[Rfam]
RNA sequence: AGCUUUGCGCAGAGGCAGUACCGCAGGCAGUGAAGGUCCUCCUGAGCCGUGGUUAUUGCUAGUUGAAAACUUUUCCCAAUACCCCGCACUGCACUGCAACGCGGUGCAGGUGCAAUUUUUGGAAGCCCGGACGGG
Numbered sequence: 001a002g003c004u005u006u007g008c009g010c011a012g013a014g015g016c017a018g019u020a021c022c023g024c025a026g027g028c029a030g031u032g033a034a035g036g037u038c039c040u041c042c043u044g045a046g047c048c049g050u051g052g053u054u055a056u057u058g059c060u061a062g063u064u065g066a067a068a069a070c071u072u073u074u075c076c077c078a079a080u081a082c083c084c085c086g087c088a089c090u091g092c093a094c095u096g097c098a099a100c101g102c103g104g105u106g107c108a109g110g111u112g113c114a115a116u117u118u119u120u121g122g123a124a125g126c127c128c129g130g131a132c133g134g135g
Stems, first nucleotide, its partner, number of pairs: 020053005026048003034043003086113003089109009126135003

U4 spliceosomal RNA: a 135-nucleotide RNA from Leptotrombidium deliense. NCBI's taxonomy places the organism under Eukaryota, Opisthokonta, Ecdysozoa, Acari, Leptotrombidium. The family's consensus secondary structure is taken from published work. Its Rfam clan is "U4 clan".